[Rfam]
RNA sequence: CGCUUUUUUCGCCCAGGCGGAGCUCGACCGUCGCAUCAAGUCCUGAGAGAGUUCGUAAACAAGCAUCGAGAUACCUUCGGGGUCGAGCCGAUCUGUAAGGUAUUGCAGAUCGCCCCG
Numbered sequence: 001c002g003c004u005u006u007u008u009u010c011g012c013c014c015a016g017g018c019g020g021a022g023c024u025c026g027a028c029c030g031u032c033g034c035a036u037c038a039a040g041u042c043c044u045g046a047g048a049g050a051g052u053u054c055g056u057a058a059a060c061a062a063g064c065a066u067c068g069a070g071a072u073a074c075c076u077u078c079g080g081g082g083u084c085g086a087g088c089c090g091a092u093c094u095g096u097a098a099g100g101u102a103u104u105g106c107a108g109a110u111c112g113c114c115c116c117g
Base pairs, nucleotide, nucleotide: 016032017031018030019029020028078117079116080115081114082113089112090111092109093108094107095106096105097104098103
RNA: ALIL pseudoknot